[Rfam]
RNA sequence: CAGCAGAUUGGCUUGCAAGGGCGGCAUAGCUCCACUUUCCGAAAGGAGGUGGUGCCAUGGAAGUUAAAGACACGUUAACUUUAAUGUUAAUGUUCGGGAUGUUUAUUCUCGCUUUGCUUACCUACUUAAAAAAGAAGUUGGCCCCCUUAAGGUUGACGACCAGGGAGCCUAACUUCCACCGUUAACGAGCCAACCGCCCUUAAAAGCGGCUGUUGCAGGGGACGGUUGCAGCCGCCCCC
Numbered sequence: 001c002a003g004c005a006g007a008u009u010g011g012c013u014u015g016c017a018a019g020g021g022c023g024g025c026a027u028a029g030c031u032c033c034a035c036u037u038u039c040c041g042a043a044a045g046g047a048g049g050u051g052g053u054g055c056c057a058u059g060g061a062a063g064u065u066a067a068a069g070a071c072a073c074g075u076u077a078a079c080u081u082u083a084a085u086g087u088u089a090a091u092g093u094u095c096g097g098g099a100u101g102u103u104u105a106u107u108c109u110c111g112c113u114u115u116g117c118u119u120a121c122c123u124a125c126u127u128a129a130a131a132a133a134g135a136a137g138u139u140g141g142c143c144c145c146c147u148u149a150a151g152g153u154u155g156a157c158g159a160c161c162a163g164g165g166a167g168c169c170u171a172a173c174u175u176c177c178a179c180c181g182u183u184a185a186c187g188a189g190c191c192a193a194c195c196g197c198c199c200u201u202a203a204a205a206g207c208g209g210c211u212g213u214u215g216c217a218g219g220g221g222a223c224g225g226u227u228g229c230a231g232c233c234g235c236c237c238c239c
Stems, first nucleotide, its partner, number of pairs: 001215006009192006016151001017148005023142001025140002032052003036049005059121001061119004072087003096113002162175002194209004218239004223234004
Rfam assigns this 239-nucleotide RNA sequence from Paenibacillus stellifer to the family "BsrG". Its family is annotated with toxin activity and autolysis in the Gene Ontology. The literature on the family includes a 2008 paper in Gene by Saito et al., "Novel small RNA-encoding genes in the intergenic regions of Bacillus subtilis". bsrE, bsrG and bsrH pair through intermolecular interactions with antisense sRNAs. They form type I toxin/antitoxin system that includes an mRNA encoding for a short, toxic peptide (bsrE, bsrG and bsrH) and an antitoxin that is comprised of an antisense RNA. bsrG encodes a 39-amino-acid toxin, and the 180 nucleotide antisense sRNA called SR4 acts as the antitoxin (they overlap by 123 nucleotides). Taxonomically the source falls in Paenibacillus (Bacteria, Bacillati, Bacillota, Bacilli). The base pairs follow the family's consensus structure, which was predicted with WAR.